[Rfam]
Description
Rfam assigns this 64-nucleotide sequence from Sinorhizobium sp. BG8 to the family "Fluoride riboswitch aptamer (crcB RNA motif)". Its family is annotated with positive regulation of gene expression and response to fluoride in the Gene Ontology. The organism belongs to Sinorhizobium, within Bacteria. The family's consensus secondary structure is taken from published work.
RNA sequence: GCGUGGGAUGGGGAUGGAGCUCCCCGACAACCGCCGGCUACCGGCUGAUAGCUCCUGUCAGGGC
Numbered sequence: 001g002c003g004u005g006g007g008a009u010g011g012g013g014a015u016g017g018a019g020c021u022c023c024c025c026g027a028c029a030a031c032c033g034c035c036g037g038c039u040a041c042c043g044g045c046u047g048a049u050a051g052c053u054c055c056u057g058u059c060a061g062g063g064c
Stems, first nucleotide, its partner, number of pairs: 010025004016055006033045004
Dot-bracket structure: .........[[[[..((((((]]]].......((((.....))))....)))))).........